[Rfam]
Notes: Shown here is a 116-nucleotide sequence from Geotrypetes seraphini, a member of the family "mraW RNA". Rfam 15.1 lists 851 matches to the family in 821 species. Rfam classes the family as a cis-regulatory element.

RNA sequence: CUUCGUGCUUCCUGCCUGGUCCCGCGCCGCUCUGUGAUUGGCUGCAGCCCGCAGCCCCCCAGUACCUGCAGCCAAUCACAGAGCGGCGAGGGACCAGGCAGGAAGUGCAAAGGUGC
Number, nucleotide and partner (000 for none) at each position: 001c000002u000003u000004c000005g000006u000007g000008c000009u000010u103011c102012c101013u100014g099015c098016c097017u000018g095019g094020u000021c092022c091023c090024g000025c088026g087027c086028c085029g084030c083031u082032c081033u080034g079035u078036g077037a076038u075039u074040g000041g072042c071043u070044g069045c068046a067047g066048c000049c000050c000051g000052c000053a000054g000055c000056c000057c000058c000059c000060c000061a000062g000063u000064a000065c000066c047067u046068g045069c044070a043071g042072c041073c000074a039075a038076u037077c036078a035079c034080a033081g032082a031083g030084c029085g028086g027087c026088g025089a000090g023091g022092g021093a000094c019095c018096a000097g016098g015099c014100a013101g012102g011103a010104a000105g000106u000107g000108c000109a000110a000111a000112g000113g000114u000115g000116c000